The family of this 102-nucleotide RNA from Paenibacillus sp. PvR098 is "Purine riboswitch aptamer".

[Rfam]
RNA sequence: AGUGAAAAAGUCGAAUAAUCUCGUAUAUCGUCGGGAAUAAGGCCCGAAAGUUUCUACCCGAAAACCUUAAAUUUUUGGACUACGAGUGAGCGUUAGUUUUUA
Numbered sequence: 001a002g003u004g005a006a007a008a009a010g011u012c013g014a015a016u017a018a019u020c021u022c023g024u025a026u027a028u029c030g031u032c033g034g035g036a037a038u039a040a041g042g043c044c045c046g047a048a049a050g051u052u053u054c055u056a057c058c059c060g061a062a063a064a065c066c067u068u069a070a071a072u073u074u075u076u077g078g079a080c081u082a083c084g085a086g087u088g089a090g091c092g093u094u095a096g097u098u099u100u101u102a
Stems, first nucleotide, its partner, number of pairs: 020086006031047005058078007
A search with the family's covariance model found it, with a score of 80 bits. Pairs were carried over by alignment from the consensus structure, which is taken from published work.